[Rfam]
RNA sequence: AUUGGUGUGGUGAUGAUGUCUUAUAUUAGGACUAGAGUUUCUGAUCUGGACUUUUAACCAGAAGUUGAAGACUAACCCUUGGCUGUCUGAGCACCAAU
Numbered sequence: 001a002u003u004g005g006u007g008u009g010g011u012g013a014u015g016a017u018g019u020c021u022u023a024u025a026u027u028a029g030g031a032c033u034a035g036a037g038u039u040u041c042u043g044a045u046c047u048g049g050a051c052u053u054u055u056a057a058c059c060a061g062a063a064g065u066u067g068a069a070g071a072c073u074a075a076c077c078c079u080u081g082g083c084u085g086u087c088u089g090a091g092c093a094c095c096a097a098u
Stems, first nucleotide, its partner, number of pairs: 001098008038070004045063001046061004
This 98-nucleotide RNA sequence from Thalictrum thalictroides belongs to the Rfam family "Small nucleolar RNA Z157/R69/R10". It scores 85 bits against the family's covariance model. A reference for the family is Chen et al. (2003), "The high diversity of snoRNAs in plants: identification and comparative study of 120 snoRNA genes from Oryza sativa", Nucleic Acids Res. NCBI's taxonomy places the organism under Eukaryota, Mesangiospermae, Ranunculales, Thalictroideae, Thalictrum. Rfam links the family to the GO terms RNA processing and nucleolus. By type it is a C/D-box small nucleolar RNA. The family's consensus secondary structure was predicted with PFOLD.